Shown here is a 130-nucleotide sequence from Hydrogenoanaerobacterium saccharovorans, a member of the family "FMN riboswitch aptamer (RFN element)".
Rfam describes the family as follows. The RFN element is a highly conserved domain that is found frequently in the 5'-untranslated regions of prokaryotic mRNAs that encode for flavin mononucleotide (FMN) biosynthesis and transport proteins.
A search with the family's covariance model found it, with a score of 105 bits.
The base pairs follow the family's consensus structure, which is taken from published work.
The source organism's lineage runs through Bacteria, Bacillota, Clostridia, Eubacteriales and Hydrogenoanaerobacterium.
RNA sequence: AGUCUGUUUCAGGGCGAGGUGUAAAUCCUCACCGGCGGUGAAGCGCUGAUAAGCGAUAAGUCCGCGAGCAAAUGCAUGAAUCGGUUAGAAUCCGAUACCGACGGUAUAGUCCGGAUGAAAGAAACGGGUG
Numbered sequence: 001a002g003u004c005u006g007u008u009u010c011a012g013g014g015c016g017a018g019g020u021g022u023a024a025a026u027c028c029u030c031a032c033c034g035g036c037g038g039u040g041a042a043g044c045g046c047u048g049a050u051a052a053g054c055g056a057u058a059a060g061u062c063c064g065c066g067a068g069c070a071a072a073u074g075c076a077u078g079a080a081u082c083g084g085u086u087a088g089a090a091u092c093c094g095a096u097a098c099c100g101a102c103g104g105u106a107u108a109g110u111c112c113g114g115a116u117g118a119a120a121g122a123a124a125c126g127g128g129u130g
Stems, first nucleotide, its partner, number of pairs: 003128008017029003031110002033100002035065004060098002080096005102113003
Dot-bracket structure: ..((((((((......(((.......))).[[((((((.....................[[))))..............(((((.......)))))]])).(((....]]))).......))))))))..